This 76-nucleotide sequence from Centropus unirufus belongs to the Rfam family "Small nucleolar RNA SNORD83". It scores 58 bits against the family's covariance model. Gene Ontology terms of the family: RNA processing and nucleolus. The family has 7 seed sequences and 1,393 matches in Rfam 15.1. A reference for the family is Jady and Kiss (2000), "Characterisation of the U83 and U84 small nucleolar RNAs: two novel 2'-O-ribose methylation guide RNAs that lack complementarities to ribosomal RNAs", Nucleic Acids Res.
RNA sequence: GCCAAAGGAUGACAAUUAGAUGGCAUUAGCACUCAGUGCAAAGAUGACCUUCAUCUAUCACCCCAGGCUGAUGGCU
Numbered sequence: 001g002c003c004a005a006a007g008g009a010u011g012a013c014a015a016u017u018a019g020a021u022g023g024c025a026u027u028a029g030c031a032c033u034c035a036g037u038g039c040a041a042a043g044a045u046g047a048c049c050u051u052c053a054u055c056u057a058u059c060a061c062c063c064c065a066g067g068c069u070g071a072u073g074g075c076u
Base pairs, nucleotide, nucleotide: 001075002074003073004072029039030038031037032036